Rfam assigns this 156-nucleotide RNA sequence from Populus trichocarpa to the family "MIR2912 microRNA precursor family". Gene Ontology terms of the family: miRNA-mediated post-transcriptional gene silencing and RISC complex. The family has 2 seed sequences and 15,051 matches in Rfam 15.1.
RNA sequence: UCUAGAACUCGAGAUAUGGGCUGAACACUAAACAGUGUCUGAGCUGUAGGAUAGAUUCUGACUUCUCUGUUGUUACUACAUUUUGAACUUGAAAACGGUCAUUUUGAAUCUUGGACUCUUCAUGAAAGUUUUAGGCCUAUGUCUUAGCUUUCCAUA
Numbered sequence: 001u002c003u004a005g006a007a008c009u010c011g012a013g014a015u016a017u018g019g020g021c022u023g024a025a026c027a028c029u030a031a032a033c034a035g036u037g038u039c040u041g042a043g044c045u046g047u048a049g050g051a052u053a054g055a056u057u058c059u060g061a062c063u064u065c066u067c068u069g070u071u072g073u074u075a076c077u078a079c080a081u082u083u084u085g086a087a088c089u090u091g092a093a094a095a096c097g098g099u100c101a102u103u104u105u106g107a108a109u110c111u112u113g114g115a116c117u118c119u120u121c122a123u124g125a126a127a128g129u130u131u132u133a134g135g136c137c138u139a140u141g142u143c144u145u146a147g148c149u150u151u152c153c154a155u156a
Stems, first nucleotide, its partner, number of pairs: 003154001005152003008147002011145010021134005027129003035123003041119001043117001045115001048112005054105002060099001062098002068092001072088003
Background: Taxonomically the source falls in Populus (Eukaryota, Euphyllophyta, Pentapetalae, fabids).